A member of the RNA family "let-7 microRNA precursor family" from Geotrypetes seraphini, 83 nucleotides long. The family is grouped with related families in Rfam's "let-7 microRNA precursor clan". This family represents the microRNAs (miRNA) let-7 and mir-98. let-7 was identified from a study of developmental timing in C. elegans, and was later shown to be part of a much larger class of non-coding RNAs termed miRNAs. The base pairs follow the family's consensus structure, which was predicted with RNAalifold.

RNA sequence: ACUGGCUGAGGUAGUGGUUUGUGUAGUUAGGGGUAGUCAUGUUGCCCAUUGGAGAUAACUAUACAAUCUACUGCCUUGCCGGU
Numbered sequence: 001a002c003u004g005g006c007u008g009a010g011g012u013a014g015u016g017g018u019u020u021g022u023g024u025a026g027u028u029a030g031g032g033g034u035a036g037u038c039a040u041g042u043u044g045c046c047c048a049u050u051g052g053a054g055a056u057a058a059c060u061a062u063a064c065a066a067u068c069u070a071c072u073g074c075c076u077u078g079c080c081g082g083u
Base pairs, nucleotide, nucleotide: 001083002082003081004080005079006078008077009076010075011074012073013072014071015070016069017068019066020065021064022063023062024061025060026059027058032046033045034044035043047054